[Rfam]
A member of the RNA family "Small nucleolar RNA SNORA20" from Propithecus coquereli, 129 nucleotides long. Rfam's curators write: ACA20 is a member of the H/ACA class of snoRNA that guide the sites of modification of uridines to pseudouridines. Its Rfam clan is "SNORA20 clan". A search with the family's covariance model found it, with a score of 72 bits. It is annotated as an H/ACA-box small nucleolar RNA. Rfam 15.1 lists 437 matches to the family in 157 species.

RNA sequence: CUUCCCAUUCAUUUGCUGCUAUCAUUUCACAAUGAUAUGAGCAGUUAUACCUAUGGAAUAAAGUUAUAGUGGGCCAUUGUAAAUCGAAACGAAUAACCAUUUUCAUCUCUUCUGCAUCAUUGGACAUUG
Numbered sequence: 001c002u003u004c005c006c007a008u009u010c011a012u013u014u015g016c017u018g019c020u021a022u023c024a025u026u027u028c029a030c031a032a033u034g035a036u037a038u039g040a041g042c043a044g045u046u047a048u049a050c051c052u053a054u055g056g057a058a059u060a061a062a063g064u065u066a067u068a069g070u071g072g073g074c075c076a077u078u079g080u081a082a083a084u085c086g087a088a089a090c091g092a093a094u095a096a097c098c099a100u101u102u103u104c105a106u107c108u109c110u111u112c113u114g115c116a117u118c119a120u121u122g123g124a125c126a127u128u129g
Stems, first nucleotide, its partner, number of pairs: 003058001005056004015045006022037001025035002070122003076117001078116004086109002089106001091104003095100001